Shown here is a 112-nucleotide sequence from Cuscuta europaea, a member of the family "Small nucleolar RNA snoR109". The match comes from Rfam's covariance-model search (56 bits). The organism belongs to Cuscuta subgen. Cuscuta, within Eukaryota.
RNA sequence: UAGCUGUAGCUAUAUAAAUGUAUUCAUGGAGUUUACUGGCCGGUUGAUCUGUUGUAUUCCUUCAUCGGGAUCUCAACUAUAGGCAUAUCUGCUUACCGAACUUCAUACACUG
Numbered sequence: 001u002a003g004c005u006g007u008a009g010c011u012a013u014a015u016a017a018a019u020g021u022a023u024u025c026a027u028g029g030a031g032u033u034u035a036c037u038g039g040c041c042g043g044u045u046g047a048u049c050u051g052u053u054g055u056a057u058u059c060c061u062u063c064a065u066c067g068g069g070a071u072c073u074c075a076a077c078u079a080u081a082g083g084c085a086u087a088u089c090u091g092c093u094u095a096c097c098g099a100a101c102u103u104c105a106u107a108c109a110c111u112g
Base pairs, nucleotide, nucleotide: 026106027105028104029103030102031101032100033099038093039092040091042089043088044087046084048082